[Rfam]
This 137-nucleotide sequence from Ochotona princeps belongs to the Rfam family "Small Cajal body specific RNA 11". Pairs were carried over by alignment from the consensus structure, which was predicted with RNAalifold. Rfam 15.1 lists 853 matches to the family in 557 species. NCBI's taxonomy places the organism under Eukaryota, Eumetazoa, Vertebrata, Amniota, Ochotona. The literature on the family includes a 2002 paper in EMBO J by Darzacq et al., "Cajal body-specific small nuclear RNAs: a novel class of 2'-O-methylation and pseudouridylation guide RNAs". Rfam's curators write: scaRNAs are a specific class of small nuclear RNAs which localise to the Cajal bodies and guide the modification of RNA polymerase II transcribed spliceosomal RNAs U1, U2, U4, U5 and U12. ACA57 belongs to the H/ACA box class of guide RNAs as it has the predicted hairpin-hinge-hairpin-tail structure, conserved H/ACA-box motifs and is found associated with GAR1. ACA57 is predicted to guide the pseudouridylation of the U5 spliceosomal RNA at position U43.
RNA sequence: UUGUCCUGACCUCGGCACCCUCUGUCGCCUAUGCUCAGUUGUCACAGGGGAGUCUGGCAGGACACAAGCACUCUCCCUCUGAGCUUAGGAGACUUUCCUAGGAGUGGGGCCAGUUCUUAAAGGCACGAGAGGACAAU
Numbered sequence: 001u002u003g004u005c006c007u008g009a010c011c012u013c014g015g016c017a018c019c020c021u022c023u024g025u026c027g028c029c030u031a032u033g034c035u036c037a038g039u040u041g042u043c044a045c046a047g048g049g050g051a052g053u054c055u056g057g058c059a060g061g062a063c064a065c066a067a068g069c070a071c072u073c074u075c076c077c078u079c080u081g082a083g084c085u086u087a088g089g090a091g092a093c094u095u096u097c098c099u100a101g102g103a104g105u106g107g108g109g110c111c112a113g114u115u116c117u118u119a120a121a122g123g124c125a126c127g128a129g130a131g132g133a134c135a136a137u
Stems, first nucleotide, its partner, number of pairs: 002064007010057002022052002028048003032044001076132005083124004089118004093113002096109005